[Rfam]
RNA sequence: GGUAGUAGCAAAUAUUCAAAUGAGAACUUUGAAGACUGAAGUGGAGAAAGGUUCCAUGUGAACAGCAAUUGGACAUGGGUUAGUCGAUCCUAAGAGAUAGGAGAAGUCCGUUCGGAAAGGCGACCCUCGGGUCGCCGCUAUCGAAAGGGAAGCGGGUUAAGAUUCCCGCACCGGGACGUGGAUACUGAGUGGCGACACAAGCGCAACCGAAGACGUCGGCUAGAGUCCCGGCGAGAGUUGUCUUUUCUCGUUAACGCCUUUGGUCGACCCUGGAAUCGGCUUGUCCGGCGAUAGGGUGGACUGGGCGGGAAAGCGGGGCACCUUUUGCCCCGUCCGCGUGCGCUCUAGACGGCCCUUGAAAAUUCGGUGGACGUGUUUUAUUCUCACCCCCGGUCGUACUCAUAACCGCAUCAGGUCUCCAAGGUGCGCAGCCUCUGGUCGA
Number, nucleotide and partner (000 for none) at each position: 001g000002g000003u000004a000005g000006u000007a000008g000009c000010a000011a000012a000013u000014a000015u033016u032017c031018a030019a029020a028021u000022g000023a000024g000025a000026a000027c000028u020029u019030u018031g017032a016033a015034g440035a439036c438037u437038g000039a000040a000041g000042u000043g420044g419045a418046g417047a000048a000049a400050g399051g000052u000053u000054c078055c077056a076057u075058g074059u073060g000061a000062a000063c071064a070065g000066c000067a000068a000069u000070u064071g063072g000073a059074c058075a057076u056077g055078g054079g000080u000081u000082a000083g000084u000085c396086g395087a394088u000089c148090c147091u000092a000093a000094g142095a141096g112097a111098u110099a000100g109101g108102a107103g000104a000105a000106g000107u102108c101109c100110g098111u097112u096113c000114g000115g000116a000117a000118a000119g000120g000121c134122g133123a132124c000125c000126c000127u000128c000129g000130g000131g000132u123133c122134g121135c000136c000137g000138c000139u000140a000141u095142c094143g000144a000145a000146a000147g090148g089149g000150a000151a000152g169153c168154g167155g166156g165157u000158u000159a000160a000161g000162a000163u000164u000165c156166c155167c154168g153169c152170a000171c000172c392173g391174g390175g389176a000177c000178g387179u386180g385181g384182a381183u380184a000185c000186u000187g000188a000189g198190u197191g196192g000193c000194g000195a000196c191197a190198c189199a000200a000201g000202c000203g000204c000205a000206a368207c367208c366209g365210a364211a363212g000213a000214c000215g353216u352217c351218g350219g000220c348221u347222a346223g345224a344225g343226u342227c000228c338229c336230g335231g251232c250233g249234a248235g247236a246237g000238u000239u000240g000241u000242c000243u000244u000245u000246u236247c235248u234249c233250g232251u231252u000253a000254a000255c307256g306257c305258c304259u303260u000261u000262g000263g000264u000265c000266g000267a297268c296269c295270c294271u293272g292273g000274a000275a000276u288277c287278g286279g285280c000281u000282u000283g000284u000285c279286c278287g277288g276289c000290g000291a000292u272293a271294g270295g269296g268297u267298g000299g000300a000301c000302u000303g259304g258305g257306c256307g255308g000309g000310a000311a000312a000313g000314c332315g331316g330317g329318g328319c327320a326321c000322c000323u000324u000325u000326u320327g319328c318329c317330c316331c315332g314333u000334c000335c230336g229337c000338g228339u000340g000341c000342g226343c225344u224345c223346u222347a221348g220349a000350c218351g217352g216353c215354c000355c000356u000357u000358g000359a000360a000361a000362a000363u211364u210365c209366g208367g207368u206369g000370g000371a000372c000373g000374u000375g000376u000377u000378u000379u000380a183381u182382u000383c000384u181385c180386a179387c178388c000389c175390c174391c173392g172393g000394u087395c086396g085397u000398a000399c050400u049401c000402a000403u000404a000405a000406c415407c414408g000409c000410a000411u000412c000413a000414g407415g406416u000417c046418u045419c044420c043421a000422a434423g433424g432425u431426g000427c000428g000429c000430a000431g425432c424433c423434u422435c000436u000437g037438g036439u035440c034441g000442a000
Overview: Shown here is a 442-nucleotide part of an RNA from Ectocarpus siliculosus, a member of the family "Eukaryotic large subunit ribosomal RNA". The base pairs follow the family's consensus structure, which is taken from published work. On this family, see Yusupov et al., Science 2001: "Crystal structure of the ribosome at 5.5 A resolution".